[Rfam]
RNA sequence: UCGACUGUACUCGAACAGGAUCACUUAUGUAGUGUUUACCUUUCGUUCACAAAAGUACUCUUGACAAAACCCUAAACCGUGAUGAUGACGUAUAUACCACAUCCACUCGGAGGAUUAGUCCACUCCAUUAACAUGGAUGUGCGACUUCGAUGAGUUCAUCUCCUUUCGGGGAGCAUUGGGUGAUGGUAAUACUGAGCGGUU
Numbered sequence: 001u002c003g004a005c006u007g008u009a010c011u012c013g014a015a016c017a018g019g020a021u022c023a024c025u026u027a028u029g030u031a032g033u034g035u036u037u038a039c040c041u042u043u044c045g046u047u048c049a050c051a052a053a054a055g056u057a058c059u060c061u062u063g064a065c066a067a068a069a070c071c072c073u074a075a076a077c078c079g080u081g082a083u084g085a086u087g088a089c090g091u092a093u094a095u096a097c098c099a100c101a102u103c104c105a106c107u108c109g110g111a112g113g114a115u116u117a118g119u120c121c122a123c124u125c126c127a128u129u130a131a132c133a134u135g136g137a138u139g140u141g142c143g144a145c146u147u148c149g150a151u152g153a154g155u156u157c158a159u160c161u162c163c164u165u166u167c168g169g170g171g172a173g174c175a176u177u178g179g180g181u182g183a184u185g186g187u188a189a190u191a192c193u194g195a196g197c198g199g200u201u
Stems, first nucleotide, its partner, number of pairs: 003039001008034004017028001019026002043067001045065003049061001051059001076200005095188005100182006109156002118145003160173004